[Rfam]
Shown here is an 84-nucleotide sequence from Ibidorhyncha struthersii, a member of the family "Small nucleolar RNA SNORD11B". Its Rfam clan is "SNORD11 clan". NCBI's taxonomy places the organism under Eukaryota, Bilateria, Aves, Charadriiformes, Ibidorhyncha.
RNA sequence: UGAUGGCGGUGAUGAUACCUAUAUUGUUGCUCUCCUGAUGUACAGAUAUGAGGGUGCAUAGUCACUACCUCAUCUGAGCCAUCA
Numbered sequence: 001u002g003a004u005g006g007c008g009g010u011g012a013u014g015a016u017a018c019c020u021a022u023a024u025u026g027u028u029g030c031u032c033u034c035c036u037g038a039u040g041u042a043c044a045g046a047u048a049u050g051a052g053g054g055u056g057c058a059u060a061g062u063c064a065c066u067a068c069c070u071c072a073u074c075u076g077a078g079c080c081a082u083c084a
Stems, first nucleotide, its partner, number of pairs: 002083006